[Rfam]
RNA sequence: AGCCUGUGAUGUUAUAAAAAUAUUUUCUACUCUUAAUGGGUUUAUCCCACUUGAUGAUCUUAACCACCAAGAUCUCUGAGGCU
Number, nucleotide and partner (000 for none) at each position: 001a083002g082003c081004c080005u000006g000007u000008g000009a000010u000011g000012u000013u000014a000015u000016a000017a000018a000019a000020a000021u000022a000023u000024u000025u000026u000027c000028u000029a000030c000031u000032c000033u000034u000035a000036a000037u000038g000039g000040g000041u000042u000043u000044a000045u000046c000047c000048c000049a000050c000051u000052u000053g000054a000055u000056g000057a000058u000059c000060u000061u000062a000063a000064c000065c000066a000067c000068c000069a000070a000071g000072a000073u000074c000075u000076c000077u000078g000079a000080g004081g003082c002083u001
A member of the RNA family "Small nucleolar RNA SNORD24" from Triticum aestivum, 83 nucleotides long.
Lineage of the source: Eukaryota > Tracheophyta > Spermatophyta > Liliopsida > Triticum.
Its family is annotated with nucleolus and RNA processing in the Gene Ontology.
Pairs were carried over by alignment from the consensus structure, which was predicted with PFOLD.
A search with the family's covariance model found it, with a score of 65 bits.
A reference for the family is Hirose and Steitz (2001), "Position within the host intron is critical for efficient processing of box C/D snoRNAs in mammalian cells", Proc Natl Acad Sci U S A.
The family's RNA type in Rfam is C/D-box small nucleolar RNA.